The record is a 107-nucleotide RNA sequence from Rossellomorea aquimaris, which matches "SAM riboswitch aptamer (S box leader)" in Rfam.
The family has 457 seed sequences and 9,625 matches in Rfam 15.1.
Taxonomically the source falls in Rossellomorea (Bacteria, Bacillati, Bacillota, Bacilli).
RNA sequence: CUCUUAUAAAGAGUUGGCAGAGGGACUGGCCCGAUGAUGCCCGGCAACCUACCGUUUCGACGGAAAGGUGCUAAGACCUGCAGGAUUGAUUUCCUGAGUGAUAAGAG
Numbered sequence: 001c002u003c004u005u006a007u008a009a010a011g012a013g014u015u016g017g018c019a020g021a022g023g024g025a026c027u028g029g030c031c032c033g034a035u036g037a038u039g040c041c042c043g044g045c046a047a048c049c050u051a052c053c054g055u056u057u058c059g060a061c062g063g064a065a066a067g068g069u070g071c072u073a074a075g076a077c078c079u080g081c082a083g084g085a086u087u088g089a090u091u092u093c094c095u096g097a098g099u100g101a102u103a104a105g106a107g
Stems, first nucleotide, its partner, number of pairs: 001107007013042001016041003022032003026080001028078002043072004048068002050064001052062001076099001081096005